[Rfam]
RNA sequence: GUGGGUUUUGGUGAUAUGGUACCCAAGACCUAUCUGGGAAUGCUGGUCGGAUCCCUGUGUGCCUUGAUGGGUGUACUGACAAUUGCCCUGCCAGUCCCGGUUAUUGUAUCAAAU
Dot-bracket structure: ((..(.(.(((.(((..((.((..............((.(........((...........))..........).))................))))..))).))).).)..))
RNA: Potassium channel RNA editing signal
Organism: Caenorhabditis brenneri